[Rfam]
RNA sequence: AGCACAAUUUACACGGAUUCACCCUGACUUAUAUUUUAAUGCCGGUGUUAUCCGCCAGUGUUGUGCCAG
Numbered sequence: 001a002g003c004a005c006a007a008u009u010u011a012c013a014c015g016g017a018u019u020c021a022c023c024c025u026g027a028c029u030u031a032u033a034u035u036u037u038a039a040u041g042c043c044g045g046u047g048u049u050a051u052c053c054g055c056c057a058g059u060g061u062u063g064u065g066c067c068a069g
Base pairs, nucleotide, nucleotide: 002066003065004064005063006062007061008060015053016052017051018050021046022045026043028041
Background:
Trypanosomatid snoRNA TB9Cs3H1: a 69-nucleotide RNA from Trypanosoma brucei. Rfam's curators put it in the seed alignment. On this family, see Liang et al., RNA 2005: "A genome-wide analysis of C/D and H/ACA-like small nucleolar RNAs in Trypanosoma brucei reveals a trypanosome-specific pattern of rRNA modification". The base pairs follow the family's consensus structure, which was predicted with WAR. By type it is an H/ACA-box small nucleolar RNA.